RNA: Nematode sRNA ceN72-3_ceN74-2
Organism: Caenorhabditis briggsae
RNA sequence: CGCUUCGGUCCGGAGUUGAUGGGUUAUCUUUGAUGAUGUUAUUGACUUUAUCUGGUGCCGCCAAUUAAUUAUCCGUUCGAAUUUCGAACAUCUUCUUCCGUUCCCAUAAAGAAUGGAAACCCCUCUUCCCAUCAACACCCCUUGACCGAAGC
Dot-bracket structure: .(((.(((((.((.(((((((((.............((...............................))....((((.....)))).........((((((.......))))))...........))))))))).))....))))).)))